[Rfam]
RNA sequence: UCAGCAGCGCGCUCUGUAUUCCAAAUCCGUUUAAGAAUGCCGGCAAAUGGCCUGGACGUUCGGCAAUCUUCACCAAUACUGAGCAGUACUGGUGUGCGGCGUAUCCCCCAAGCGCCCCGCCAGGCAAGGUACCGUGGACCGCGUACCUUGAUUUACUCCUAAUGGUCUUAACCCGGUCUCAUCCCCCAGAGCCCGG
Numbered sequence: 001u002c003a004g005c006a007g008c009g010c011g012c013u014c015u016g017u018a019u020u021c022c023a024a025a026u027c028c029g030u031u032u033a034a035g036a037a038u039g040c041c042g043g044c045a046a047a048u049g050g051c052c053u054g055g056a057c058g059u060u061c062g063g064c065a066a067u068c069u070u071c072a073c074c075a076a077u078a079c080u081g082a083g084c085a086g087u088a089c090u091g092g093u094g095u096g097c098g099g100c101g102u103a104u105c106c107c108c109c110a111a112g113c114g115c116c117c118c119g120c121c122a123g124g125c126a127a128g129g130u131a132c133c134g135u136g137g138a139c140c141g142c143g144u145a146c147c148u149u150g151a152u153u154u155a156c157u158c159c160u161a162a163u164g165g166u167c168u169u170a171a172c173c174c175g176g177u178c179u180c181a182u183c184c185c186c187c188a189g190a191g192c193c194c195g196g
Stems, first nucleotide, its partner, number of pairs: 042166001044164002089123003095119002098116001100114003125150008133141001173196004178191003
Source information
A member of the RNA family "RgsA sRNA", 196 nucleotides long. This small RNA (sRNA) was computationally identified in the genome of the opportunistic pathogen Pseudomonas aeruginosa and its expression verified by northern blot analysis. P16 sRNA appears to be conserved across several Pseudomonas species and Azotobacter vinelandii. The family's consensus secondary structure was predicted with RNAalifold. For this family Rfam cites "The Role of the ncRNA RgsA in the Oxidative Stress Response and Biofilm Formation in Azotobacter vinelandii" (Huerta et al., Curr Microbiol, 2016). The sequence is in the family's curated seed alignment. By type it is a small RNA.